[Rfam]
RNA sequence: GGAGACUGACAAAGGGGAGGAAAGUCCGGGCUUCAUAGAGCAAGGUGCCAGGUAACGCCUGGGGGGCGCAAGCCUACGACAAGUGCAGCAGAGAGAAGACCGCCGAUGGCCCGCAAGGGAACAGGUAAGGGUGAAAGGGUGCGGUAAGAGCGCACCGGACGACUAGUAAUAGUUCGUAGCAGGGUAAACUCCACCUGAAGCAAGACCAAAUAGGCCUCCACAUUGCGUUGCUCGCGUAAGGAGGCGGGUAGGUUGCUCGAGCCAGUGAGUGAUUGCUGGCCUAGACGAAUGGCUACCGCCGCGCAAGCGGAACAGAACCCGGCUUAUGUGUCGGCUCCACCU
Numbered sequence: 001g002g003a004g005a006c007u008g009a010c011a012a013a014g015g016g017g018a019g020g021a022a023a024g025u026c027c028g029g030g031c032u033u034c035a036u037a038g039a040g041c042a043a044g045g046u047g048c049c050a051g052g053u054a055a056c057g058c059c060u061g062g063g064g065g066g067c068g069c070a071a072g073c074c075u076a077c078g079a080c081a082a083g084u085g086c087a088g089c090a091g092a093g094a095g096a097a098g099a100c101c102g103c104c105g106a107u108g109g110c111c112c113g114c115a116a117g118g119g120a121a122c123a124g125g126u127a128a129g130g131g132u133g134a135a136a137g138g139g140u141g142c143g144g145u146a147a148g149a150g151c152g153c154a155c156c157g158g159a160c161g162a163c164u165a166g167u168a169a170u171a172g173u174u175c176g177u178a179g180c181a182g183g184g185u186a187a188a189c190u191c192c193a194c195c196u197g198a199a200g201c202a203a204g205a206c207c208a209a210a211u212a213g214g215c216c217u218c219c220a221c222a223u224u225g226c227g228u229u230g231c232u233c234g235c236g237u238a239a240g241g242a243g244g245c246g247g248g249u250a251g252g253u254u255g256c257u258c259g260a261g262c263c264a265g266u267g268a269g270u271g272a273u274u275g276c277u278g279g280c281c282u283a284g285a286c287g288a289a290u291g292g293c294u295a296c297c298g299c300c301g302c303g304c305a306a307g308c309g310g311a312a313c314a315g316a317a318c319c320c321g322g323c324u325u326a327u328g329u330g331u332c333g334g335c336u337c338c339a340c341c342u
Stems, first nucleotide, its partner, number of pairs: 001338004006334006012327001013294002022325003026322005031200004038233004043196005048062005063077001064075004078191002083189002085185002100130002102126003107123002110119003138156006157180001159177004163172003204254004214245006224238005261280008
Bacterial RNase P class A: a 342-nucleotide RNA sequence from Vibrio parahaemolyticus. About the family: Ribonuclease P (RNase P) is a ubiquitous endoribonuclease, found in archaea, bacteria and eukarya as well as chloroplasts and mitochondria. The family's RNA type in Rfam is ribozyme.